[Rfam]
Rfam assigns this 73-nucleotide sequence from Anopheles gambiae to the family "mir-929 microRNA precursor family". Rfam 15.1 lists 147 matches to the family in 146 species. The family's consensus secondary structure was predicted with RNAalifold. A reference for the family is Weaver et al. (2007), "Computational and transcriptional evidence for microRNAs in the honey bee genome", Genome Biol. The source organism's lineage runs through Eukaryota, Bilateria, Insecta, Cellia and gambiae species complex.

RNA sequence: UGGGAUUAAAUUGACUCUAGUAGGGAGUCCUUUUAUACGAGCGACUCCCUAACGGAGUCAGAUUGAUUCCGGU
Number, nucleotide and partner (000 for none) at each position: 001u000002g000003g000004g000005a000006u000007u000008a000009a000010a000011u061012u060013g059014a058015c057016u056017c055018u054019a000020g000021u051022a050023g049024g048025g047026a046027g045028u044029c043030c000031u000032u000033u000034u000035a000036u000037a000038c000039g000040a000041g000042c000043g029044a028045c027046u026047c025048c024049c023050u022051a021052a000053c000054g018055g017056a016057g015058u014059c013060a012061g011062a000063u000064u000065g000066a000067u000068u000069c000070c000071g000072g000073u000